[Rfam]
Nucleotides: 036
Stems, first nucleotide, its partner, number of pairs: 002021004010035003
Number, partner (000 for none) and nucleotide at each position: 001000a002021g003020g004019g005018g006000g007000c008000a009000a010035g011034c012033u013000g014000a015000a016000a017000a018005c019004c020003c021002u022000u023000u024000a025000a026000c027000a028000g029000a030000g031000u032000a033012a034011g035010c036000g

Source information:
A member of the RNA family "DUF805b RNA" from Filimonas zeae, 36 nucleotides long. The organism belongs to Filimonas, within Bacteria. The family is grouped with related families in Rfam's "DUF805 clan". It is annotated as a cis-regulatory element.